[Rfam]
RNA sequence: GGGCUGGCUUUAGCUCAGCGGUUCCUUCGCAUCUAACUUUCAGUUCACUAGCCACUCUUGCCUGCGAGGGUGGUUCGAGACCCGCGGGUGCACUCAGCCCUUUA
Numbered sequence: 001g002g003g004c005u006g007g008c009u010u011u012a013g014c015u016c017a018g019c020g021g022u023u024c025c026u027u028c029g030c031a032u033c034u035a036a037c038u039u040u041c042a043g044u045u046c047a048c049u050a051g052c053c054a055c056u057c058u059u060g061c062c063u064g065c066g067a068g069g070g071u072g073g074u075u076c077g078a079g080a081c082c083c084g085c086g087g088g089u090g091c092a093c094u095c096a097g098c099c100c101u102u103u104a
Base pairs, nucleotide, nucleotide: 002099003098004097005096006095013089014088015087016086018085019084020083021082026079027078028077029076